[Rfam]
RNA sequence: GUGUUUUUCAUGGUAUUAGAUUUAAGGUUAACAGAGAGUAGGGGCUGUCGGGAGACAGUCCCUAUUCGUUUUUA
Dot-bracket structure: ........................................(((((((........)))))))............
Numbered sequence: 001g002u003g004u005u006u007u008u009c010a011u012g013g014u015a016u017u018a019g020a021u022u023u024a025a026g027g028u029u030a031a032c033a034g035a036g037a038g039u040a041g042g043g044g045c046u047g048u049c050g051g052g053a054g055a056c057a058g059u060c061c062c063u064a065u066u067c068g069u070u071u072u073u074a
Stems, first nucleotide, its partner, number of pairs: 041062007
Bacteroidetes FopS (family of paralogous sRNAs): a 74-nucleotide sequence from Porphyromonas sp. oral taxon 279. Rfam links the family to the GO term sRNA-mediated gene silencing. Rfam 15.1 lists 822 matches to the family in 178 species. The match comes from Rfam's covariance-model search (70 bits). The RNA-binding protein RbpB and BTncRNA_FopS sRNA are involved in the post-transcription regulation of polysaccharide utilisation loci (PUL). FopS sRNAs function as post-transcriptional repressors by binding to the vicinity of the start codon of the first mRNA of target PUL polycistrons, typically corresponding to the cognate SusC homolog, impeding translation of the respective glycan transporter. The family's consensus secondary structure is taken from published work.